[Rfam]
RNA: MIR5565 microRNA precursor family
RNA sequence: ACUCUAGUAUUGACCUCAAUCCACAUGUGUUGAGGUGAAUUGUGGUGUAAAUUAGUUUAAGUUACACCUCAAUCCAUCUCAAUACAUAUGGAUUAGGGUCAAUACUAGA
Numbered sequence: 001a002c003u004c005u006a007g008u009a010u011u012g013a014c015c016u017c018a019a020u021c022c023a024c025a026u027g028u029g030u031u032g033a034g035g036u037g038a039a040u041u042g043u044g045g046u047g048u049a050a051a052u053u054a055g056u057u058u059a060a061g062u063u064a065c066a067c068c069u070c071a072a073u074c075c076a077u078c079u080c081a082a083u084a085c086a087u088a089u090g091g092a093u094u095a096g097g098g099u100c101a102a103u104a105c106u107a108g109a
Base pairs, nucleotide, nucleotide: 004108005107006106007105008104009103010102011101012100013099014098016096018094019093020092021091022090023089025087026086027085028084029083030082031081032080035077036076037075039073040072041071042070045067046066047065